This 102-nucleotide sequence from Plutella xylostella belongs to the Rfam family "mir-8517 microRNA precursor family". The match comes from Rfam's covariance-model search (87 bits). Lineage of the source: Eukaryota > Altocrustacea > Dicondylia > Lepidoptera > Plutella. Rfam links the family to the GO terms miRNA-mediated post-transcriptional gene silencing and RISC complex.
[Rfam]
RNA sequence: UUAUACGAUGCUAUUGAACUGUUCUGUCACUCUCUGGCAGAGAACAAUUUAUUCUUUGACAGAGAGGGACCAAACAGUUCAAUAGAAAAAGCGUCCUAUAAC
Numbered sequence: 001u002u003a004u005a006c007g008a009u010g011c012u013a014u015u016g017a018a019c020u021g022u023u024c025u026g027u028c029a030c031u032c033u034c035u036g037g038c039a040g041a042g043a044a045c046a047a048u049u050u051a052u053u054c055u056u057u058g059a060c061a062g063a064g065a066g067g068g069a070c071c072a073a074a075c076a077g078u079u080c081a082a083u084a085g086a087a088a089a090a091g092c093g094u095c096c097u098a099u100a101a102c
Stems, first nucleotide, its partner, number of pairs: 001101005011085012023063007043053002046050001